Annotation
mir-8813 microRNA precursor family: a 97-nucleotide sequence from Vulpes vulpes. The family has 2 seed sequences and 307 matches in Rfam 15.1. The base pairs follow the family's consensus structure, which was predicted with RNAalifold. A search with the family's covariance model found it, with a score of 73 bits.
[Rfam]
RNA sequence: UGGUGACCUGAGGUUCCCUGGCUGUCACUCUAUCCCAGCACCUCCUGGCCCAUGGGGAACAGGCUGAAUCACAGUAAAGUCUGUGGGGUCCUGACCC
Numbered sequence: 001u002g003g004u005g006a007c008c009u010g011a012g013g014u015u016c017c018c019u020g021g022c023u024g025u026c027a028c029u030c031u032a033u034c035c036c037a038g039c040a041c042c043u044c045c046u047g048g049c050c051c052a053u054g055g056g057g058a059a060c061a062g063g064c065u066g067a068a069u070c071a072c073a074g075u076a077a078a079g080u081c082u083g084u085g086g087g088g089u090c091c092u093g094a095c096c097c
Stems, first nucleotide, its partner, number of pairs: 002096003005090005011082005021075005027069001029067002033063002041056002